The family of this 93-nucleotide sequence from Paenibacillus sp. yr247 is "c-di-GMP-I-GGC riboswitch aptamer".
The match comes from Rfam's covariance-model search (61 bits).
Rfam 15.1 lists 1,298 matches to the family in 717 species.
Lineage of the source: Bacteria > Bacillati > Bacillota > Paenibacillaceae > Paenibacillus.
Pairs were carried over by alignment from the consensus structure, which is taken from published work.
RNA sequence: AUGAUAAAAGGCAAACCCGUGCGAAAGCCGGGGACGCAAAGCCACGGUUCUAACCCAUCGAGAUGCGAUGGCAUGAAAGCCGGGCCGCUCUAA
Number, nucleotide and partner (000 for none) at each position: 001a000002u000003g090004a089005u000006a000007a000008a000009a000010g000011g037012c036013a000014a000015a000016c032017c031018c030019g029020u000021g028022c027023g000024a000025a000026a000027g022028c021029c019030g018031g017032g016033g000034a000035c079036g012037c011038a000039a000040a000041g085042c084043c083044a000045c082046g081047g080048u077049u076050c075051u000052a000053a000054c000055c000056c000057a000058u000059c000060g000061a000062g000063a000064u000065g000066c000067g000068a000069u000070g000071g000072c000073a000074u000075g050076a049077a048078a000079g035080c047081c046082g045083g043084g042085c041086c000087g000088c000089u004090c003091u000092a000093a000